Group II catalytic intron D1-D4-3: a 173-nucleotide RNA sequence from Vreelandella azerica. Gene Ontology term of the family: Group II intron splicing. The match comes from Rfam's covariance-model search (140 bits). Group II introns are found in rRNA, tRNA and mRNA of organelles in fungi, plants and protists, and also in mRNA in bacteria. Pairs were carried over by alignment from the consensus structure.
RNA sequence: UCCAUCGCAAGGUGGAAUCUGAAGGAAGCCUGCGGCAAAUCGCUGAGCCGAGGAACACGAACCUCAUACGAGGCGGGCUGCGUGGAGUAAGUGUGCUGAAGAACACAAAGCUCAUCCCAACACGGCAGCGCAGUACGUAUAUGAGGCGGCUACCUGGCGAGAAAGAUGUGCGU
Numbered sequence: 001u002c003c004a005u006c007g008c009a010a011g012g013u014g015g016a017a018u019c020u021g022a023a024g025g026a027a028g029c030c031u032g033c034g035g036c037a038a039a040u041c042g043c044u045g046a047g048c049c050g051a052g053g054a055a056c057a058c059g060a061a062c063c064u065c066a067u068a069c070g071a072g073g074c075g076g077g078c079u080g081c082g083u084g085g086a087g088u089a090a091g092u093g094u095g096c097u098g099a100a101g102a103a104c105a106c107a108a109a110g111c112u113c114a115u116c117c118c119a120a121c122a123c124g125g126c127a128g129c130g131c132a133g134u135a136c137g138u139a140u141a142u143g144a145g146g147c148g149g150c151u152a153c154c155u156g157g158c159g160a161g162a163a164a165g166a167u168g169u170g171c172g173u
Stems, first nucleotide, its partner, number of pairs: 001016006028173002031170002036165001040160006046151005062146006073138003077134007085113004091106004